[Rfam]
RNA: TPP riboswitch aptamer (THI element)
RNA sequence: AUUUAAGCCUCGGGGUGGUCGCAAGGCCUGAGAUUCACCAAUUGGUGUAGACCCGAUGAACCUGAUCCGGUUAAUACCGGCGUAGGGACAGGCGGCAACACCUCUC
Dot-bracket structure: ......((((((((.(((((....)))).......((((....)))).)..)))).....((((..((((......))))..))))...)))).............